[Rfam]
Shown here is a 122-nucleotide sequence from Mannheimia varigena, a member of the family "Histidine operon leader". Pairs were carried over by alignment from the consensus structure, which is taken from published work. For this family Rfam cites "Attenuation in amino acid biosynthetic operons" (Kolter and Yanofsky, Annu Rev Genet, 1982). Rfam links the family to the GO term histidine biosynthetic process. About the family: At least 6 amino acid operons are known to be regulated by attenuation.
RNA sequence: ACAUCAUCACCACUUAACUUGAUAUCUUUCGGGUAUUUGGUGUAUGCGGAGGAUAGAUCUUCCGAACAAGUGCAGUAUCUAUAAAUAAUCUCUCGGAAAGCAACUUUCGAGAGGUUUUUUAU
Numbered sequence: 001a002c003a004u005c006a007u008c009a010c011c012a013c014u015u016a017a018c019u020u021g022a023u024a025u026c027u028u029u030c031g032g033g034u035a036u037u038u039g040g041u042g043u044a045u046g047c048g049g050a051g052g053a054u055a056g057a058u059c060u061u062c063c064g065a066a067c068a069a070g071u072g073c074a075g076u077a078u079c080u081a082u083a084a085a086u087a088a089u090c091u092c093u094c095g096g097a098a099a100g101c102a103a104c105u106u107u108c109g110a111g112a113g114g115u116u117u118u119u120u121a122u
Stems, first nucleotide, its partner, number of pairs: 009043002011039002015035001018033005045065001047064007084119002087116012